The record is a 107-nucleotide RNA from Vibrio cholerae, which matches "c-di-GMP-I riboswitch aptamer" in Rfam. The source organism's lineage runs through Bacteria, Gammaproteobacteria, Vibrionales, Vibrionaceae and Vibrio cholerae. Rfam links the family to the GO term cyclic-di-GMP binding. The sequence is in the family's curated seed alignment.
[Rfam]
Nucleotides: 107
Stems, first nucleotide, its partner, number of pairs: 012037002017032002020029003040101004045097003048092003055086003
Number, partner (000 for none) and nucleotide at each position: 001000g002000u003000c004000a005000c006000a007000c008000u009000u010000u011000g012037g013036c014000a015000a016000a017032c018031c019000c020029u021028u022027u023000g024000a025000a026000a027022a028021a029020a030000u031018g032017g033000g034000a035000c036013g037012c038000a039000a040101a041100g042099c043098c044000u045097c046096c047095g048092g049091u050090c051000u052000g053000u054000c055086g056085g057084u058000c059000a060000a061000g062000a063000a064000a065000g066000c067000u068000c069000a070000u071000a072000a073000a074000g075000c076000c077000c078000u079000c080000u081000u082000a083000c084057a085056c086055c087000u088000a089000g090050g091049a092048u093000a094000g095047c096046g097045g098043g099042g100041u101040u102000a103000c104000c105000a106000a107000u